[Rfam]
RNA sequence: CCCAGCGGUAGUCAGCUGCCCAGUGCCGCGUGGUGCCUGGGGCAGUGUUAUGCUGCUGGCAGAGAAACGCGCUGCCCAGUCGCUCCUGGCCCCGCCGGUGCUGUCCUAGUGCCAGGCGGUGCUGGGCUUUGGCAGCGCUCUGCAAGCCCGAGAGUGGAGGAGCUCCUGCUCGGUGGAGUCCAUCCUAGACUGGAUGCAGACAGC
Numbered sequence: 001c002c003c004a005g006c007g008g009u010a011g012u013c014a015g016c017u018g019c020c021c022a023g024u025g026c027c028g029c030g031u032g033g034u035g036c037c038u039g040g041g042g043c044a045g046u047g048u049u050a051u052g053c054u055g056c057u058g059g060c061a062g063a064g065a066a067a068c069g070c071g072c073u074g075c076c077c078a079g080u081c082g083c084u085c086c087u088g089g090c091c092c093c094g095c096c097g098g099u100g101c102u103g104u105c106c107u108a109g110u111g112c113c114a115g116g117c118g119g120u121g122c123u124g125g126g127c128u129u130u131g132g133c134a135g136c137g138c139u140c141u142g143c144a145a146g147c148c149c150g151a152g153a154g155u156g157g158a159g160g161a162g163c164u165c166c167u168g169c170u171c172g173g174u175g176g177a178g179u180c181c182a183u184c185c186u187a188g189a190c191u192g193g194a195u196g197c198a199g200a201c202a203g204c
Base pairs, nucleotide, nucleotide: 002059003058004057005056006055007054008053009052011051012050015046016045017044018043019042020041021039022038023037025036026035069138070137071136072135073134074133075132076131085126086125087124089120090119091118093116097112099111100110101109102108140199141198142197143196144195147192156185157184158183160181162179163178164177165176166175